[Rfam]
RNA sequence: UGGUAGAUGCACCCUGAUGAUUCCCCUUGGCUCCCCCGCUAAGGGGUUUUUUUU
Numbered sequence: 001u002g003g004u005a006g007a008u009g010c011a012c013c014c015u016g017a018u019g020a021u022u023c024c025c026c027u028u029g030g031c032u033c034c035c036c037c038g039c040u041a042a043g044g045g046g047u048u049u050u051u052u053u054u
Stems, first nucleotide, its partner, number of pairs: 002013003023046009